RNA sequence: AAAUGAAGGAAGCAUGGUAAUGUGCACAGAGAUCGAAUAGGGUCAUCAUGUCUGCUUGUUUUGAUGCAUGCGGCUUUGAUCUGCAGGCCUGGAUCAGACGUACAUAU
Numbered sequence: 001a002a003a004u005g006a007a008g009g010a011a012g013c014a015u016g017g018u019a020a021u022g023u024g025c026a027c028a029g030a031g032a033u034c035g036a037a038u039a040g041g042g043u044c045a046u047c048a049u050g051u052c053u054g055c056u057u058g059u060u061u062u063g064a065u066g067c068a069u070g071c072g073g074c075u076u077u078g079a080u081c082u083g084c085a086g087g088c089c090u091g092g093a094u095c096a097g098a099c100g101u102a103c104a105u106a107u
Base pairs, nucleotide, nucleotide: 012025013024014023015022040090041089042088043087044086050080051079052078054074055073056072
The family of this 107-nucleotide RNA from Aquilegia coerulea is "Small nucleolar RNA snoR100".
The literature on the family includes a 2002 paper in Curr Biol by Marker et al., "Experimental RNomics: identification of 140 candidates for small non-messenger RNAs in the plant Arabidopsis thaliana".